[Rfam]
RNA sequence: AUAGUUGGAUCUCUAAGUUUUUGGAAUGCUCUAAAUUC
Numbered sequence: 001a002u003a004g005u006u007g008g009a010u011c012u013c014u015a016a017g018u019u020u021u022u023g024g025a026a027u028g029c030u031c032u033a034a035a036u037u038c
Stems, first nucleotide, its partner, number of pairs: 003018001005016004020035006
Rfam assigns this 38-nucleotide RNA sequence from Hevea brasiliensis to the family "Plastid psbT antisense RNA". A search with the family's covariance model found it, with a score of 50 bits. Rfam's curators write: Plastid-psbT-asRNA is an antisense RNA (asRNA) motif reported in Plastids It has been shown that psbT expression is controlled by two antisense RNAs originated from psbN transcription by the nuclear-encoded polymerase (NEP), in which the short antisense RNA hybridizes to psbT CDS, thereby stabilizing psbT transcript while blocking its translation during photooxidative stress. The family's consensus secondary structure was predicted with LocARNA.